[Rfam]
RNA sequence: UGCUCAUCCAGAGGGGUGGAGGGAUACGGCCCUGCGAAGCCCCGGCAACCAUCCCGGUACACGUUUCUCGUCAAGUGCGGGGCGACCGGGACAGGUGCCAACUCCGUCCCGUCGCCAGAGCGGCGCGGGAAAGAUGAGGG
Dot-bracket structure: (.((((((....(((((...(((..[[[[)))......)))))((((.((.(((((((..........................)))))))..))))))...(]]]](((((............)))))..))))))).)
The family of this 140-nucleotide sequence from Actinorugispora endophytica is "SAM riboswitch aptamer (S box leader)". The match comes from Rfam's covariance-model search (74 bits). Rfam links the family to the GO term regulation of gene expression. The SAM riboswitch is found upstream of a number of genes which code for proteins involved in methionine or cysteine biosynthesis in Gram-positive bacteria.